[Rfam]
RNA sequence: GCAAUACUCAAACUAUGGGGACACUUUCUGUUCUUUGGAAGAAGUGCCGCCAAGAUUUGAGUGUUGC
Number, nucleotide and partner (000 for none) at each position: 001g000002c000003a000004a064005u063006a062007c061008u060009c059010a058011a057012a056013c000014u000015a000016u052017g051018g050019g000020g048021a000022c046023a045024c044025u043026u040027u039028c038029u000030g000031u000032u000033c000034u000035u000036u000037g000038g028039a027040a026041g000042a000043a025044g024045u023046g022047c000048c020049g000050c018051c017052a016053a000054g000055a000056u012057u011058u010059g009060a008061g007062u006063g005064u004065u000066g000067c000